This 483-nucleotide part of an RNA from Lotharella oceanica belongs to the Rfam family "Eukaryotic large subunit ribosomal RNA".
[Rfam]
RNA sequence: CGUCCUGCACUAAAGCAAGAAUACCCGCCGAACUUAAGCAUAUCAUUAAGCGGAGGAAAAGAAACUAACCAGGAUUCCCCCAGUAACAGCGAGCGAACAGGGACGAGCCCAUCCAUGAAGCACCGCGCGCGCGACGGACGCUUGCUCGGUGCCCUUUGGGGUUACUGAGGCCACGCUAUCCUGAUCAGCCGCAUCACGGUGAAGUUACAUUGAAGGUUACAACCAGAGAGGGUGCCAGUCCCGUAACCGUGAUGCGCUGCCGUGUGCCCAACCCCCGGUCGGUAAUACGACGGGGAACGGCGUAUCAGCCCCGUAGCCUCAAGAGAGUCGAGCUGCUUGAGAGUGCAGCUCAAAGAAGGUGGUAGCUCCCAUCUAAGGCUAAAUACAUGCAAGAGGCCGAUAGCGAACAAGUACCGCGAGGGAAAGAUGAAAUAGCACCCCGGGAAGGGGGGUGAAAAGAUCCUGAAAUCAGCAAGGUGGAAG
Numbered sequence: 001c002g003u004c005c006u007g008c009a010c011u012a013a014a015g016c017a018a019g020a021a022u023a024c025c026c027g028c029c030g031a032a033c034u035u036a037a038g039c040a041u042a043u044c045a046u047u048a049a050g051c052g053g054a055g056g057a058a059a060a061g062a063a064a065c066u067a068a069c070c071a072g073g074a075u076u077c078c079c080c081c082a083g084u085a086a087c088a089g090c091g092a093g094c095g096a097a098c099a100g101g102g103a104c105g106a107g108c109c110c111a112u113c114c115a116u117g118a119a120g121c122a123c124c125g126c127g128c129g130c131g132c133g134a135c136g137g138a139c140g141c142u143u144g145c146u147c148g149g150u151g152c153c154c155u156u157u158g159g160g161g162u163u164a165c166u167g168a169g170g171c172c173a174c175g176c177u178a179u180c181c182u183g184a185u186c187a188g189c190c191g192c193a194u195c196a197c198g199g200u201g202a203a204g205u206u207a208c209a210u211u212g213a214a215g216g217u218u219a220c221a222a223c224c225a226g227a228g229a230g231g232g233u234g235c236c237a238g239u240c241c242c243g244u245a246a247c248c249g250u251g252a253u254g255c256g257c258u259g260c261c262g263u264g265u266g267c268c269c270a271a272c273c274c275c276c277g278g279u280c281g282g283u284a285a286u287a288c289g290a291c292g293g294g295g296a297a298c299g300g301c302g303u304a305u306c307a308g309c310c311c312c313g314u315a316g317c318c319u320c321a322a323g324a325g326a327g328u329c330g331a332g333c334u335g336c337u338u339g340a341g342a343g344u345g346c347a348g349c350u351c352a353a354a355g356a357a358g359g360u361g362g363u364a365g366c367u368c369c370c371a372u373c374u375a376a377g378g379c380u381a382a383a384u385a386c387a388u389g390c391a392a393g394a395g396g397c398c399g400a401u402a403g404c405g406a407a408c409a410a411g412u413a414c415c416g417c418g419a420g421g422g423a424a425a426g427a428u429g430a431a432a433u434a435g436c437a438c439c440c441c442g443g444g445a446a447g448g449g450g451g452g453u454g455a456a457a458a459g460a461u462c463c464u465g466a467a468a469u470c471a472g473c474a475a476g477g478u479g480g481a482a483g
Stems, first nucleotide, its partner, number of pairs: 024055001025053004035042002065072002076103004087093001106380004113161002116158004120152006127145002166321002169317001173314003185304001188301004194295002197292002200289001204220001206219002224228001231280002330351007357374005414421002438449003
Annotation:
The sequence is in the family's curated seed alignment. NCBI's taxonomy places the organism under Eukaryota, Sar, Cercozoa, Chlorarachniophyceae, Lotharella.